[Rfam]
RNA sequence: UGGUAGAUGCACCCUGAUGAACUCCUCCAGUUGGGGACAACUGGGGGAUUACUUU
Numbered sequence: 001u002g003g004u005a006g007a008u009g010c011a012c013c014c015u016g017a018u019g020a021a022c023u024c025c026u027c028c029a030g031u032u033g034g035g036g037a038c039a040a041c042u043g044g045g046g047g048a049u050u051a052c053u054u055u
Base pairs, nucleotide, nucleotide: 002013003012004011024047025046026045027044028043029042030041031040032039033038

The family of this 55-nucleotide sequence from Roseofilum reptotaenium is "Nitrogen stress-induced RNA 1". By type it is a small RNA. It scores 50 bits against the family's covariance model. Lineage of the source: Bacteria > Bacillati > Desertifilales > Desertifilaceae > Roseofilum reptotaenium.